RNA sequence: CUGUCCCUGUCUUUGGUUAUCUAGCUGUAUGAGUGUUAAAGCUCCAUCAUAAAGCUAGCUAACCGAAAGUAGGAAUGG
Numbered sequence: 001c002u003g004u005c006c007c008u009g010u011c012u013u014u015g016g017u018u019a020u021c022u023a024g025c026u027g028u029a030u031g032a033g034u035g036u037u038a039a040a041g042c043u044c045c046a047u048c049a050u051a052a053a054g055c056u057a058g059c060u061a062a063c064c065g066a067a068a069g070u071a072g073g074a075a076u077g078g
Base pairs, nucleotide, nucleotide: 001078002077003076004075007072008071009070010069012067013066014065015064016063017062018061019060021058022057023056024055025054026053028051029050030049031048032047
Notes: A member of the RNA family "mir-9/mir-79 microRNA precursor family" from Muraenolepis orangiensis, 78 nucleotides long. Lineage of the source: Eukaryota > Ctenosquamata > Gadariae > Muraenolepididae > Muraenolepis. The base pairs follow the family's consensus structure, which was predicted with RNAalifold.